[Rfam]
RNA sequence: UCUCCUUUUCUUGGUGGGGACUGGGUGUGCGGUCCCACUUCCCGUGAUGUACUGAGGCAAAGGAAAGGGCUCGGUCUCUCUCGGUGCCAUGUCUUCAGUGCCGGCGGCUUCCUGUUCACCGGUGCUAUCCUCAAACACAGAGACACGG
Dot-bracket structure: ((((..........((((((.((((........)))).)))))).........))))........................(.(((..............((((.((........)).)))).............))).)........
RNA: Small nucleolar RNA SNORA57